[Rfam]
RNA: mir-9195 microRNA precursor family
RNA sequence: AGAGGCCCUCUGUGGCUGGGGUGGAAUGCUUGCAUCGUUGCUGCAGUGAUAAAGCAAGCAUUCUGCCAGGCCGCUCAUACUGCCUGU
Number, nucleotide and partner (000 for none) at each position: 001a000002g000003a000004g084005g083006c082007c000008c000009u000010c000011u000012g074013u073014g072015g071016c070017u069018g000019g000020g067021g066022u065023g064024g063025a062026a061027u060028g059029c058030u057031u056032g055033c054034a000035u000036c000037g050038u049039u048040g047041c046042u000043g000044c000045a000046g041047u040048g039049a038050u037051a000052a000053a000054g033055c032056a031057a030058g029059c028060a027061u026062u025063c024064u023065g022066c021067c020068a000069g017070g016071c015072c014073g013074c012075u000076c000077a000078u000079a000080c000081u000082g006083c005084c004085u000086g000087u000